[Rfam]
A member of the RNA family "U5 spliceosomal RNA" from Aphidius gifuensis, 121 nucleotides long. The organism belongs to Aphidius, within Eukaryota. Rfam's curators write: U5 RNA is a component of both types of known spliceosome. It is annotated as a spliceosomal small nuclear RNA. The family has 180 seed sequences and 28,527 matches in Rfam 15.1.
RNA sequence: UUACUCUGGCUUCCCUUCAAUACACGUUUAAAUCUUUCGCCUUUUACUAAAGAUUUCCGUGGAGGGGAACAAUUGAUGAGUCUAUACUCUAUUUUUUUUCGUACCUAGCGCAAGCUGGGUC
Numbered sequence: 001u002u003a004c005u006c007u008g009g010c011u012u013c014c015c016u017u018c019a020a021u022a023c024a025c026g027u028u029u030a031a032a033u034c035u036u037u038c039g040c041c042u043u044u045u046a047c048u049a050a051a052g053a054u055u056u057c058c059g060u061g062g063a064g065g066g067g068a069a070c071a072a073u074u075g076a077u078g079a080g081u082c083u084a085u086a087c088u089c090u091a092u093u094u095u096u097u098u099u100c101g102u103a104c105c106u107a108g109c110g111c112a113a114g115c116u117g118g119g120u121c
Base pairs, nucleotide, nucleotide: 003081004080005079006078009070011068012067013066014065015064016063017062018061019060030056031055032054033053034052035051036050037049101121103120104119105118106117107116108115